[Rfam]
RNA sequence: GCGGAGGGCCGGAUGGCCGCACCCUUAUGGGUGAGGAAAGUCCGGACUCCCCGAAGCGACGGUGCCGGGUAACGCCCGGGCGGGGAAACCCGACGGACAGCGCCACAGAGAACAGACCGCCCGGGCUUCGGCCCGCGGCAAGGGUGAAACGGUGGGGUAAGAGCCCACCGCGGGGGCGGCAACGUCCCCGGCGACGGCAAGCCCCACCGGGAGCAAUGCCAUGUAGGGACCCCGUGGGCCGGCAACGGCCCGGGACGGCUUCGCCCCAGGGGUCCGGGUCGGCAGCACGACCCCGCCGGCGACGGCGGGGCCAGAGGAAUGGCCAUCCCGCGUCCCCAAUGGGUCGCGGACAGAAUCCGGCUUAUAGGCUCUCCGCGCAU
Numbered sequence: 001g002c003g004g005a006g007g008g009c010c011g012g013a014u015g016g017c018c019g020c021a022c023c024c025u026u027a028u029g030g031g032u033g034a035g036g037a038a039a040g041u042c043c044g045g046a047c048u049c050c051c052c053g054a055a056g057c058g059a060c061g062g063u064g065c066c067g068g069g070u071a072a073c074g075c076c077c078g079g080g081c082g083g084g085g086a087a088a089c090c091c092g093a094c095g096g097a098c099a100g101c102g103c104c105a106c107a108g109a110g111a112a113c114a115g116a117c118c119g120c121c122c123g124g125g126c127u128u129c130g131g132c133c134c135g136c137g138g139c140a141a142g143g144g145u146g147a148a149a150c151g152g153u154g155g156g157g158u159a160a161g162a163g164c165c166c167a168c169c170g171c172g173g174g175g176g177c178g179g180c181a182a183c184g185u186c187c188c189c190g191g192c193g194a195c196g197g198c199a200a201g202c203c204c205c206a207c208c209g210g211g212a213g214c215a216a217u218g219c220c221a222u223g224u225a226g227g228g229a230c231c232c233c234g235u236g237g238g239c240c241g242g243c244a245a246c247g248g249c250c251c252g253g254g255a256c257g258g259c260u261u262c263g264c265c266c267c268a269g270g271g272g273u274c275c276g277g278g279u280c281g282g283c284a285g286c287a288c289g290a291c292c293c294c295g296c297c298g299g300c301g302a303c304g305g306c307g308g309g310g311c312c313a314g315a316g317g318a319a320u321g322g323c324c325a326u327c328c329c330g331c332g333u334c335c336c337c338a339a340u341g342g343g344u345c346g347c348g349g350a351c352a353g354a355a356u357c358c359g360g361c362u363u364a365u366a367g368g369c370u371c372u373c374c375g376c377g378c379a380u
Base pairs, nucleotide, nucleotide: 001376002375003374004373005372006371007370008369009368010367011365012327013326014325015324016323017322018321020033021032022031023030024029038363039362040361042360043359044358045357046356047213048212049211050210055261056260060209061208062207063206064205065079066078067077068076069075080094081092082091083090084089095204096203100202101201102198103197104196117143118142119139120138121137122135123134124133125132126131151169152168153167154166155165156164170192171190172189173188174187175186176185177184178183217284218283219282220281227275228274229273230272231271232270252267253266254265256263291310292309293308294307295306296305297304298303
Shown here is a 380-nucleotide RNA from Rhodobacteraceae bacterium CCMM004, a member of the family "Bacterial RNase P class A". A search with the family's covariance model found it, with a score of 258 bits. Taxonomically the source falls in Paracoccaceae (Bacteria, Pseudomonadati, Pseudomonadota, Rhodobacterales). Rfam's curators write: Ribonuclease P (RNase P) is a ubiquitous endoribonuclease, found in archaea, bacteria and eukarya as well as chloroplasts and mitochondria. The family's consensus secondary structure is taken from published work.